[Rfam]
A member of the RNA family "Small nucleolar RNA SNORD25" from Triticum aestivum, 96 nucleotides long. Rfam classes the family as a C/D-box small nucleolar RNA. Rfam 15.1 lists 985 matches to the family in 241 species.
RNA sequence: GACAGCUGUGAUGAGCCCAUUUUACAGUUACAGACCUGUAAUGACUUCUGUGGAAAUGAUCGCAUGGUCAAAGAACAUCUAAAGGACUGAGUUGUU
Numbered sequence: 001g002a003c004a005g006c007u008g009u010g011a012u013g014a015g016c017c018c019a020u021u022u023u024a025c026a027g028u029u030a031c032a033g034a035c036c037u038g039u040a041a042u043g044a045c046u047u048c049u050g051u052g053g054a055a056a057u058g059a060u061c062g063c064a065u066g067g068u069c070a071a072a073g074a075a076c077a078u079c080u081a082a083a084g085g086a087c088u089g090a091g092u093u094g095u096u
Stems, first nucleotide, its partner, number of pairs: 002095005
About this RNA
The source organism's lineage runs through Eukaryota, Magnoliopsida, Poales, Triticinae and Triticum. Rfam links the family to the GO terms nucleolus and RNA processing. The base pairs follow the family's consensus structure, which was predicted with PFOLD.